The family of this 241-nucleotide sequence is "HNH endonuclease-associated RNA and ORF (HEARO) RNA". The literature on the family includes a 2009 paper in Nature by Weinberg et al., "Exceptional structured noncoding RNAs revealed by bacterial metagenome analysis". The sequence is in the family's curated seed alignment. By type it is a non-coding RNA gene.

RNA sequence: GUCAACUACCCCUCCCUGCCCGCUGAUGCGGUCGAGGAAGGGGCUUGUCUAAAGAUAGCCCUUGUUGACCAGAUCAUCAAUUGGAGUAAACAAAAUUGGUAAACGAUAUGCAAGAAUCAUAUAGUUACCUUCGAAUGUCGCCUCAGUUUGAAGCUCUAAGGAUACAAGUUAAAAGUCCUAAAGGGUUGUGGACAGCGCUUAUAUCAAAAACCUUGCAAUAUCUGAUCGAGAGGAAGACGGA
Numbered sequence: 001g002u003c004a005a006c007u008a009c010c011c012c013u014c015c016c017u018g019c020c021c022g023c024u025g026a027u028g029c030g031g032u033c034g035a036g037g038a039a040g041g042g043g044c045u046u047g048u049c050u051a052a053a054g055a056u057a058g059c060c061c062u063u064g065u066u067g068a069c070c071a072g073a074u075c076a077u078c079a080a081u082u083g084g085a086g087u088a089a090a091c092a093a094a095a096u097u098g099g100u101a102a103a104c105g106a107u108a109u110g111c112a113a114g115a116a117u118c119a120u121a122u123a124g125u126u127a128c129c130u131u132c133g134a135a136u137g138u139c140g141c142c143u144c145a146g147u148u149u150g151a152a153g154c155u156c157u158a159a160g161g162a163u164a165c166a167a168g169u170u171a172a173a174a175g176u177c178c179u180a181a182a183g184g185g186u187u188g189u190g191g192a193c194a195g196c197g198c199u200u201a202u203a204u205c206a207a208a209a210a211c212c213u214u215g216c217a218a219u220a221u222c223u224g225a226u227c228g229a230g231a232g233g234a235a236g237a238c239g240g241a
Base pairs, nucleotide, nucleotide: 001069002068003067004066005065006064008062010043011042012040013039020031021030022029023028045058046057047056048055049054072227073226074225077099078098079097080096081095105222106221107220108219109218113214114213125159126158129153130152131151132150133149134148135147136146138236141233142232143231144230161205162204163203164202166200167199168198169197175193176192177191178190179188180187